Source information
A member of the RNA family "ALIL pseudoknot" from Sinimarinibacterium sp. NLF-5-8, 117 nucleotides long. Lineage of the source: Bacteria > Pseudomonadota > Gammaproteobacteria > Nevskiales > Sinimarinibacterium. The base pairs follow the family's consensus structure, which is taken from published work. The literature on the family includes a 2008 paper in J Biol Chem by Mazauric et al., "Apical loop-internal loop RNA pseudoknots: a new type of stimulator of -1 translational frameshifting in bacteria". A search with the family's covariance model found it, with a score of 104 bits.
RNA sequence: UGCUUUUUUCGCCCAGGCGGCGCUCGACCGCGAACUGAAGAAGUAAACGCCUAUAUCGACCGGCACCGGGACGUUUACGGGGUCGAGCCGAUCUGCAAGGUGUUGCAGGUUGCCCCA
Numbered sequence: 001u002g003c004u005u006u007u008u009u010c011g012c013c014c015a016g017g018c019g020g021c022g023c024u025c026g027a028c029c030g031c032g033a034a035c036u037g038a039a040g041a042a043g044u045a046a047a048c049g050c051c052u053a054u055a056u057c058g059a060c061c062g063g064c065a066c067c068g069g070g071a072c073g074u075u076u077a078c079g080g081g082g083u084c085g086a087g088c089c090g091a092u093c094u095g096c097a098a099g100g101u102g103u104u105g106c107a108g109g110u111u112g113c114c115c116c117a
Stems, first nucleotide, its partner, number of pairs: 017031004079116004089112002092109007